RNA sequence: ACCGUGUACUUACCUGCUAUAUAGUAGGGGAAAUACAUGUAUUCCAGCUACUAUAUAGUAGGUAAGUACGUGGUUU
Numbered sequence: 001a002c003c004g005u006g007u008a009c010u011u012a013c014c015u016g017c018u019a020u021a022u023a024g025u026a027g028g029g030g031a032a033a034u035a036c037a038u039g040u041a042u043u044c045c046a047g048c049u050a051c052u053a054u055a056u057a058g059u060a061g062g063u064a065a066g067u068a069c070g071u072g073g074u075u076u
Stems, first nucleotide, its partner, number of pairs: 001074015017058011030045001033042003
The family of this 76-nucleotide RNA from Ameiurus melas is "mir-7563 microRNA precursor family". NCBI's taxonomy places the organism under Eukaryota, Metazoa, Teleostei, Clupeocephala, Ameiurus. A search with the family's covariance model found it, with a score of 82 bits. The base pairs follow the family's consensus structure, which was predicted with RNAalifold. Rfam links the family to the GO terms RISC complex and miRNA-mediated post-transcriptional gene silencing.